The family of this 75-nucleotide sequence from Electrophorus electricus is "mir-129 microRNA precursor family". The family's consensus secondary structure was predicted with RNAalifold. A reference for the family is Lagos-Quintana et al. (2002), "Identification of tissue-specific microRNAs from mouse", Curr Biol. Gene Ontology terms of the family: RISC complex, miRNA-mediated post-transcriptional gene silencing and gene silencing by miRNA.
[Rfam]
RNA sequence: CCAAGCCUUUUUGCGGUCUGGGCUUGCUGUUCCGUAACCCAGUAGCCAGGAAGCCCUUACCCCAAAAAGUAUUUG
Numbered sequence: 001c002c003a004a005g006c007c008u009u010u011u012u013g014c015g016g017u018c019u020g021g022g023c024u025u026g027c028u029g030u031u032c033c034g035u036a037a038c039c040c041a042g043u044a045g046c047c048a049g050g051a052a053g054c055c056c057u058u059a060c061c062c063c064a065a066a067a068a069g070u071a072u073u074u075g
Stems, first nucleotide, its partner, number of pairs: 007069007015061003020056004025051001027049002
Taxonomically the source falls in Electrophorus (Eukaryota, Metazoa, Gnathostomata, Teleostomi).